[Rfam]
RNA sequence: UGUUGUCCAGAGUCCUUUUUCUGUUGUACUACUGGCAAUUAUGAUGAGCAGUGCAAUAUUAAAAGGGCAUUGGCUGGCA
Dot-bracket structure: (((.(.((((.((((((((..(((((((((...................)))))))))..)))))))).)))))..)))
Numbered sequence: 001u002g003u004u005g006u007c008c009a010g011a012g013u014c015c016u017u018u019u020u021c022u023g024u025u026g027u028a029c030u031a032c033u034g035g036c037a038a039u040u041a042u043g044a045u046g047a048g049c050a051g052u053g054c055a056a057u058a059u060u061a062a063a064a065g066g067g068c069a070u071u072g073g074c075u076g077g078c079a
Stems, first nucleotide, its partner, number of pairs: 001079003005074001007073004012068008022058009